Shown here is a 93-nucleotide sequence from Pseudactinotalea sp. HY158, a member of the family "SAM riboswitch aptamer (S box leader)".
The family's consensus secondary structure is taken from published work.

RNA sequence: AUCCCAUCCAGAGCGGCGGAGAGUCCUGGCUCGCUGAUGCCGCAGCAACCACCCCGUGCCCGGGGCAGGUGCUAACGCCAGGUUCGAUGGAGG
Numbered sequence: 001a002u003c004c005c006a007u008c009c010a011g012a013g014c015g016g017c018g019g020a021g022a023g024u025c026c027u028g029g030c031u032c033g034c035u036g037a038u039g040c041c042g043c044a045g046c047a048a049c050c051a052c053c054c055c056g057u058g059c060c061c062g063g064g065g066c067a068g069g070u071g072c073u074a075a076c077g078c079c080a081g082g083u084u085c086g087a088u089g090g091a092g093g
Base pairs, nucleotide, nucleotide: 002092004090005089006088007087008086013043014042015041016040017039021032022031023030026081027080028079029078044073045072046071047070049069050068052064053063054062077085